[Rfam]
Description: Shown here is a 53-nucleotide RNA from Lentibacter algarum, a member of the family "ffh sRNA". Taxonomically the source falls in Lentibacter (Bacteria, Pseudomonadati, Pseudomonadota, Roseobacteraceae). The base pairs follow the family's consensus structure, which is taken from published work. On this family, see Meyer et al., BMC Genomics 2009: "Identification of candidate structured RNAs in the marine organism 'Candidatus Pelagibacter ubique'".
RNA sequence: GCCAGUCGAGAUCGCCCCCCGUCAGCGAGUUUCGCCCACGGGGGCUUAUUGUC
Numbered sequence: 001g002c003c004a005g006u007c008g009a010g011a012u013c014g015c016c017c018c019c020c021g022u023c024a025g026c027g028a029g030u031u032u033c034g035c036c037c038a039c040g041g042g043g044g045c046u047u048a049u050u051g052u053c
Stems, first nucleotide, its partner, number of pairs: 016044007025035004